[Rfam]
RNA: MIR812 microRNA precursor family
Organism: Oryza rufipogon
RNA sequence: AAUAAAUAUAGUUUUGCACUAUUCAUCUCCAACGUUUAACCAUUCGUUUUAUUUGAAAAAAAAAUAUGAUUACUAUUUUUAUUGCUAUUAGAUGAUAAAAUAUGAAUAGUACUUUAUGUGUGACUAAUUUUUUAAAAAAAAUUAUAAAAUUUUCAAAUAAGACGGACAGUCAAACGUUGAACACGAAUUUUCACAAGUGCAUUUAUU
Numbered sequence: 001a002a003u004a005a006a007u008a009u010a011g012u013u014u015u016g017c018a019c020u021a022u023u024c025a026u027c028u029c030c031a032a033c034g035u036u037u038a039a040c041c042a043u044u045c046g047u048u049u050u051a052u053u054u055g056a057a058a059a060a061a062a063a064a065u066a067u068g069a070u071u072a073c074u075a076u077u078u079u080u081a082u083u084g085c086u087a088u089u090a091g092a093u094g095a096u097a098a099a100a101u102a103u104g105a106a107u108a109g110u111a112c113u114u115u116a117u118g119u120g121u122g123a124c125u126a127a128u129u130u131u132u133u134a135a136a137a138a139a140a141a142u143u144a145u146a147a148a149a150u151u152u153u154c155a156a157a158u159a160a161g162a163c164g165g166a167c168a169g170u171c172a173a174a175c176g177u178u179g180a181a182c183a184c185g186a187a188u189u190u191u192c193a194c195a196a197g198u199g200c201a202u203u204u205a206u207u
Base pairs, nucleotide, nucleotide: 028181030179031178032177033176035174036173037172039170040169043166044165045164046163047162048161049160050159051158052157